[Rfam]
RNA sequence: ACACUCUCUAUCAGAAUGGAUGUCUUGCUGUCAUAACAGAUAGAGAAGGUUGUGGCAGACCC
Numbered sequence: 001a002c003a004c005u006c007u008c009u010a011u012c013a014g015a016a017u018g019g020a021u022g023u024c025u026u027g028c029u030g031u032c033a034u035a036a037c038a039g040a041u042a043g044a045g046a047a048g049g050u051u052g053u054g055g056c057a058g059a060c061c062c
Stems, first nucleotide, its partner, number of pairs: 007044006029057009
RNA: Coronavirus 3' UTR pseudoknot
Organism: Betacoronavirus muris